The family of this 97-nucleotide RNA from Papaver nudicaule is "MIR397 microRNA precursor family".
NCBI's taxonomy places the organism under Eukaryota, Embryophyta, Magnoliopsida, Ranunculales, Papaver.
It scores 80 bits against the family's covariance model.
The literature on the family includes a 2009 paper in Plant Cell by Wu et al., "Rice MicroRNA effector complexes and targets".
RNA sequence: AAAAAAAACAUCAUUGAGUGCAGCGUUGAUGAAAUUCUUGGUCUUCUUGGAGAAUUUUCAAUGGCUUUCACCAACGCUUCAUUCAAUUAUGUCUUUC
Numbered sequence: 001a002a003a004a005a006a007a008a009c010a011u012c013a014u015u016g017a018g019u020g021c022a023g024c025g026u027u028g029a030u031g032a033a034a035u036u037c038u039u040g041g042u043c044u045u046c047u048u049g050g051a052g053a054a055u056u057u058u059c060a061a062u063g064g065c066u067u068u069c070a071c072c073a074a075c076g077c078u079u080c081a082u083u084c085a086a087u088u089a090u091g092u093c094u095u096u097c
Stems, first nucleotide, its partner, number of pairs: 006094001008092004013087008022078007030070005